[Rfam]
RNA: Bacterial large subunit ribosomal RNA, nucleotides 1378 to 1862
RNA sequence: GAGAGACGGGUGGGAAUCCCGUCCGCUGAUUGACUAAGGGUUCCAGGGCUAGGUUGUUCCGCCCUGGGUUAGUCGGGUCCUAAGGCGAGGCCGACAGGCGUAGUCGAUGGGUGACCAGUUGAUAUUCUGGUACCGGCGAAGAACCGUCCAUGUGGGUGUGGGUGAUGCUAACCAUCCCGGAUCGCGCGGUCGUCUUUCGGGGCGGGUGUGUGUGAUGGCGUGGGGUCCGAGCCUGCUUCUGCAAGCGUGUUAACAGGUGUGACGCAGAGUGGUAGUCCCGCGUGCCUUAUGGCUUGGCAUGUUUAAGGGUGUGGGUCGUUCCUUUGGUAAAUCCGGGGGGCAUGUGACUGAGGCCUGAUGAUGGCAUCCCGUUGUGGGGUGGAUAUGGGGUGAUCCUGUGCUGCCGAGAAAAGCAUCGACGCGAGGUUUGAGCCGCCCGUACCCGAAACCGACACAGGUGGUCAGGUAGAGUAUACCGAGGCGUG
Numbered sequence: 001g002a003g004a005g006a007c008g009g010g011u012g013g014g015a016a017u018c019c020c021g022u023c024c025g026c027u028g029a030u031u032g033a034c035u036a037a038g039g040g041u042u043c044c045a046g047g048g049c050u051a052g053g054u055u056g057u058u059c060c061g062c063c064c065u066g067g068g069u070u071a072g073u074c075g076g077g078u079c080c081u082a083a084g085g086c087g088a089g090g091c092c093g094a095c096a097g098g099c100g101u102a103g104u105c106g107a108u109g110g111g112u113g114a115c116c117a118g119u120u121g122a123u124a125u126u127c128u129g130g131u132a133c134c135g136g137c138g139a140a141g142a143a144c145c146g147u148c149c150a151u152g153u154g155g156g157u158g159u160g161g162g163u164g165a166u167g168c169u170a171a172c173c174a175u176c177c178c179g180g181a182u183c184g185c186g187c188g189g190u191c192g193u194c195u196u197u198c199g200g201g202g203c204g205g206g207u208g209u210g211u212g213u214g215a216u217g218g219c220g221u222g223g224g225g226u227c228c229g230a231g232c233c234u235g236c237u238u239c240u241g242c243a244a245g246c247g248u249g250u251u252a253a254c255a256g257g258u259g260u261g262a263c264g265c266a267g268a269g270u271g272g273u274a275g276u277c278c279c280g281c282g283u284g285c286c287u288u289a290u291g292g293c294u295u296g297g298c299a300u301g302u303u304u305a306a307g308g309g310u311g312u313g314g315g316u317c318g319u320u321c322c323u324u325u326g327g328u329a330a331a332u333c334c335g336g337g338g339g340g341c342a343u344g345u346g347a348c349u350g351a352g353g354c355c356u357g358a359u360g361a362u363g364g365c366a367u368c369c370c371g372u373u374g375u376g377g378g379g380u381g382g383a384u385a386u387g388g389g390g391u392g393a394u395c396c397u398g399u400g401c402u403g404c405c406g407a408g409a410a411a412a413g414c415a416u417c418g419a420c421g422c423g424a425g426g427u428u429u430g431a432g433c434c435g436c437c438c439g440u441a442c443c444c445g446a447a448a449c450c451g452a453c454a455c456a457g458g459u460g461g462u463c464a465g466g467u468a469g470a471g472u473a474u475a476c477c478g479a480g481g482c483g484u485g
Stems, first nucleotide, its partner, number of pairs: 005023006024483004032463004038443002043067006052060002074439004079110002084105003088101001090099003114237001116235003240435002242430005254421001256417005264404004271396002275391005280302006303361002307356004314349003318341007326334002363384001365382001368379002449458002465477004